[Rfam]
A member of the RNA family "Small nucleolar RNA snoR53Y" from Castanea mollissima, 88 nucleotides long.

RNA sequence: UUUCCCUAUAUGAUACUUCAAUAUGAAAUUAUGCUAAUGCUGAUCAGUCUGUGAUUGAUUCUUUUUUCAACCAUUUGCUGAGGGAAUG
Numbered sequence: 001u002u003u004c005c006c007u008a009u010a011u012g013a014u015a016c017u018u019c020a021a022u023a024u025g026a027a028a029u030u031a032u033g034c035u036a037a038u039g040c041u042g043a044u045c046a047g048u049c050u051g052u053g054a055u056u057g058a059u060u061c062u063u064u065u066u067u068c069a070a071c072c073a074u075u076u077g078c079u080g081a082g083g084g085a086a087u088g
Stems, first nucleotide, its partner, number of pairs: 002086006
NCBI's taxonomy places the organism under Eukaryota, Streptophytina, Spermatophyta, Gunneridae, Castanea.